[Rfam]
RNA sequence: GGCCCAAACUUCACUACAAGAAACAUCUUGAAACCCAACUUUCCAAAUCAAUCAACAUGUCUCCCUGCACCUGCAACUGCUGCAAAGGCGAGUGCAACUCUUGCUCCUGCAACAGCUGCAGCGUAAGUUAUU
Number, nucleotide and partner (000 for none) at each position: 001g000002g000003c000004c000005c000006a000007a000008a000009c000010u000011u000012c000013a000014c000015u000016a000017c000018a000019a000020g000021a000022a000023a000024c000025a000026u000027c000028u000029u000030g000031a000032a000033a000034c000035c000036c000037a000038a000039c000040u000041u000042u000043c000044c000045a000046a000047a000048u000049c000050a000051a000052u000053c000054a000055a000056c000057a000058u000059g000060u000061c000062u000063c000064c000065c000066u090067g089068c088069a000070c000071c000072u000073g083074c082075a081076a000077c000078u000079g000080c000081u075082g074083c073084a000085a000086a000087g000088g068089c067090g066091a000092g000093u000094g119095c118096a117097a000098c000099u000100c000101u000102u000103g110104c109105u000106c000107c000108u000109g104110c103111a000112a000113c000114a000115g000116c000117u096118g095119c094120a000121g000122c000123g000124u000125a000126a000127g000128u000129u000130a000131u000132u000
RNA: A. fumigatus sRNA Afu_254